[Rfam]
Rfam assigns this 89-nucleotide RNA sequence from Zingiber officinale to the family "Small nucleolar RNA SNORD34". The source organism's lineage runs through Eukaryota, Tracheophyta, Euphyllophyta, Zingiberaceae and Zingiber. snoRNA U34 is found in intron 5 of the ribosomal protein L13a gene in humans. The match comes from Rfam's covariance-model search (53 bits). The base pairs follow the family's consensus structure, which was predicted with PFOLD.
RNA sequence: CAAGGCCUAUGAUGAUCAACUAGUAUAUUUUUGCCUACAUUGCAUGAUUAGUUUGUGAUAAAAAAAAAACAUGGUAUUCUGAGGCCUUG
Numbered sequence: 001c002a003a004g005g006c007c008u009a010u011g012a013u014g015a016u017c018a019a020c021u022a023g024u025a026u027a028u029u030u031u032u033g034c035c036u037a038c039a040u041u042g043c044a045u046g047a048u049u050a051g052u053u054u055g056u057g058a059u060a061a062a063a064a065a066a067a068a069a070c071a072u073g074g075u076a077u078u079c080u081g082a083g084g085c086c087u088u089g
Stems, first nucleotide, its partner, number of pairs: 001089002004086004

Clan: SNORD34 clan. The literature on the family includes a 2002 paper in Mol Cell Biol by Galardi et al., "Purified box C/D snoRNPs are able to reproduce site-specific 2'-O-methylation of target RNA in vitro".